[Rfam]
RNA: R2 RNA element
Organism: Drosophila persimilis
RNA sequence: ACUUAGCCUAUACACUAUGUUGGAGAGAGACGCUUGCUACCUAGGCAUAAUGUGAAUUAGGUAUAAACAUCGUGGUUGUAAACUUGAGUGGGUUUUAGUACGGUAUGCGUGAUUACUUCGUAAUCAUGAAUCGUGCAUGCUAGUGGGGUUUGGCCUCUACUAGUAUCUUUGAAGAUUUCCCUUCCUCAGCGAUC
Number, nucleotide and partner (000 for none) at each position: 001a000002c000003u000004u000005a000006g000007c000008c000009u000010a000011u000012a000013c000014a000015c000016u000017a000018u000019g000020u000021u000022g000023g000024a000025g000026a000027g000028a000029g000030a000031c000032g000033c000034u000035u000036g000037c000038u063039a062040c061041c060042u059043a058044g000045g000046c000047a000048u000049a000050a000051u000052g000053u000054g000055a000056a000057u000058u043059a042060g041061g040062u039063a038064u000065a000066a000067a000068c000069a193070u192071c191072g190073u189074g000075g000076u000077u000078g000079u000080a000081a000082a000083c000084u000085u188086g187087a186088g185089u000090g181091g180092g179093u000094u000095u000096u000097a000098g136099u135100a134101c133102g132103g000104u000105a000106u000107g000108c128109g127110u126111g125112a124113u123114u122115a121116c120117u000118u000119c000120g116121u115122a114123a113124u112125c111126a110127u109128g108129a000130a000131u000132c102133g101134u100135g099136c098137a000138u165139g164140c163141u162142a161143g160144u000145g000146g000147g000148g000149u000150u000151u000152g000153g000154c000155c000156u000157c000158u000159a000160c143161u142162a141163g140164u139165a138166u000167c000168u000169u000170u000171g000172a000173a000174g000175a000176u000177u000178u000179c092180c091181c090182u000183u000184c000185c088186u087187c086188a085189g073190c072191g071192a070193u069194c000